[Rfam]
The family of this 81-nucleotide RNA sequence from Gouania willdenowi is "mir-363 microRNA precursor family". On this family, see Linsen et al., BMC Genomics 2010: "Small RNA expression and strain specificity in the rat". It scores 64 bits against the family's covariance model.
RNA sequence: GCUGAUCUCGGGUGGAUGACUCGGCAAUUUCAACACUUGGCACAAUGAUAGAAAUUGCACAGUAUCCAUCUGCAAUCCGCU
Dot-bracket structure: ........(((((((((.((...((((((((...................))))))))...))))))))))).........